The record is a 101-nucleotide sequence from Paenibacillus solanacearum, which matches "Purine riboswitch aptamer" in Rfam. Rfam describes the family as follows. Riboswitches are metabolite binding domains within certain messenger RNAs that serve as precision sensors for their corresponding targets. Taxonomically the source falls in Paenibacillus (Bacteria, Bacillota, Bacilli, Caryophanales). Its family is annotated with purine nucleobase biosynthetic process in the Gene Ontology.

RNA sequence: AAUCGAUUGCAAGCUACCAUUCGUAUAACCUUGACGAUACGGGUCGAGGGUUUCUACAAGGAACCGAUAAAUUCCUGGCUACGAAGGGUGCGGACUUUCCG
Number, nucleotide and partner (000 for none) at each position: 001a000002a000003u000004c000005g000006a000007u000008u000009g000010c000011a000012a000013g000014c000015u000016a000017c000018c087019a000020u085021u084022c083023g082024u081025a080026u000027a000028a000029c049030c048031u047032u046033g045034a044035c043036g000037a000038u000039a000040c000041g000042g000043g035044u034045c033046g032047a031048g030049g029050g000051u000052u000053u000054c000055u000056a000057c000058a000059a076060g075061g074062a073063a072064c000065c000066g000067a000068u000069a000070a000071a000072u063073u062074c061075c060076u059077g000078g000079c000080u025081a024082c023083g022084a021085a020086g000087g018088g000089u000090g000091c000092g000093g000094a000095c000096u000097u000098u000099c000100c000101g000